This 95-nucleotide RNA from Bacillus mesophilum belongs to the Rfam family "c-di-GMP-I riboswitch aptamer". A search with the family's covariance model found it, with a score of 76 bits. The organism belongs to Bacillus, within Bacteria. GEMM was predicted in a large-scale screen for bacterial structured RNA regulatory elements. Rfam 15.1 lists 5,092 matches to the family in 1,772 species.
RNA sequence: UAUUCCAUUGGGCAAAUUUUACGAAAGUAAAAGACGCAAAGCCACGGGCCUAAAGUAUGUGCUUGUACACAUGCCAUGGCAGCCGGGUUGCAUAU
Numbered sequence: 001u002a003u004u005c006c007a008u009u010g011g012g013c014a015a016a017u018u019u020u021a022c023g024a025a026a027g028u029a030a031a032a033g034a035c036g037c038a039a040a041g042c043c044a045c046g047g048g049c050c051u052a053a054a055g056u057a058u059g060u061g062c063u064u065g066u067a068c069a070c071a072u073g074c075c076a077u078g079g080c081a082g083c084c085g086g087g088u089u090g091c092a093u094a095u
Stems, first nucleotide, its partner, number of pairs: 012037002017032006040089004045085003048080003055074007